[Rfam]
RNA sequence: AUUAUUAAUAGGCAAACCUAUAGAAAUGUAGGGACGCAAAGCUACAGGGACUAAAGUUAUGUAAUAACUAUGUCAGCCAGUUGCCAAA
Numbered sequence: 001a002u003u004a005u006u007a008a009u010a011g012g013c014a015a016a017c018c019u020a021u022a023g024a025a026a027u028g029u030a031g032g033g034a035c036g037c038a039a040a041g042c043u044a045c046a047g048g049g050a051c052u053a054a055a056g057u058u059a060u061g062u063a064a065u066a067a068c069u070a071u072g073u074c075a076g077c078c079a080g081u082u083g084c085c086a087a088a
Stems, first nucleotide, its partner, number of pairs: 012037002017032006040082004047078002049074003056068004
Annotation: The family of this 88-nucleotide sequence from Pristimantibacillus lignocellulolyticus is "c-di-GMP-I riboswitch aptamer". Taxonomically the source falls in Pristimantibacillus (SeqCode) (Bacteria, Bacillati, Bacillota, Bacilli).